[Rfam]
RNA: Y RNA
RNA sequence: GGCUGGUCUGAAGGUAGUGAGUUACCCCACUUGAUUGUUUACAGAUCGAACUCCCUGUUCUACUCUUUCCCCCUUCUCACUACUGCACUUGACUGCUCUUAA
Numbered sequence: 001g002g003c004u005g006g007u008c009u010g011a012a013g014g015u016a017g018u019g020a021g022u023u024a025c026c027c028c029a030c031u032u033g034a035u036u037g038u039u040u041a042c043a044g045a046u047c048g049a050a051c052u053c054c055c056u057g058u059u060c061u062a063c064u065c066u067u068u069c070c071c072c073c074u075u076c077u078c079a080c081u082a083c084u085g086c087a088c089u090u091g092a093c094u095g096c097u098c099u100u101a102a
Stems, first nucleotide, its partner, number of pairs: 001098002004095005010090002014086002016081006033064001035062001